[Rfam]
RNA: SAM (S-adenosyl methionine) riboswitch aptamer
RNA sequence: GAUCAAGAAGUUCAACCACAAGCCCCUUGGCUGGUUGGCUGGCAACCGCGUGACGAACACGGUGCCCCCAAGGGAAGAUCGGCCUUCUGUUGCACAAGCCCAGAAGGAAGCUCGUUUC
Numbered sequence: 001g002a003u004c005a006a007g008a009a010g011u012u013c014a015a016c017c018a019c020a021a022g023c024c025c026c027u028u029g030g031c032u033g034g035u036u037g038g039c040u041g042g043c044a045a046c047c048g049c050g051u052g053a054c055g056a057a058c059a060c061g062g063u064g065c066c067c068c069c070a071a072g073g074g075a076a077g078a079u080c081g082g083c084c085u086u087c088u089g090u091u092g093c094a095c096a097a098g099c100c101c102a103g104a105a106g107g108a109a110g111c112u113c114g115u116u117u118c
Stems, first nucleotide, its partner, number of pairs: 001080004009040001012038005021032002041066003046062003050058002083107007092099002